[Rfam]
RNA sequence: UUUGUGACAACAAAACAAUUAUGAUAACAAUUACAAACAAUACUUGGUGGUGGAACAAUUUACGUCAGUCGUCGUGAACAAAGCUCCUAUAGUAUGUAGUUAACUAUAAAUAUACAAAGGCUUGUC
Numbered sequence: 001u002u003u004g005u006g007a008c009a010a011c012a013a014a015a016c017a018a019u020u021a022u023g024a025u026a027a028c029a030a031u032u033a034c035a036a037a038c039a040a041u042a043c044u045u046g047g048u049g050g051u052g053g054a055a056c057a058a059u060u061u062a063c064g065u066c067a068g069u070c071g072u073c074g075u076g077a078a079c080a081a082a083g084c085u086c087c088u089a090u091a092g093u094a095u096g097u098a099g100u101u102a103a104c105u106a107u108a109a110a111u112a113u114a115c116a117a118a119g120g121c122u123u124g125u126c
Stems, first nucleotide, its partner, number of pairs: 036101003040095005047088001049087002052084001059080001061078001062072003